[Rfam]
RNA sequence: CACACGGAAAUCUCCGAGCCAUGCUGCCUAAAAGGGACACCUCAGGGCGCCAGGCCAACGGGUUUCGCUGGAAACGGCGGAGCCUCCCUCAUGGAAAGGAGUGCCCGCGCGGACGAC
Dot-bracket structure: ..(..(.....((((..(((..((.(((....(((....)))...)))))..)))....(((((((((((....)))))))))))((.....))...))))......)..)......
The record is a 117-nucleotide RNA from Geomonas silvestris, which matches "Molybdenum/Tungsten riboswitch aptamer (Moco RNA motif)" in Rfam.
Gene Ontology terms of the family: regulation of gene expression, molybdenum ion binding and tungstate binding.
The family's consensus secondary structure is taken from published work.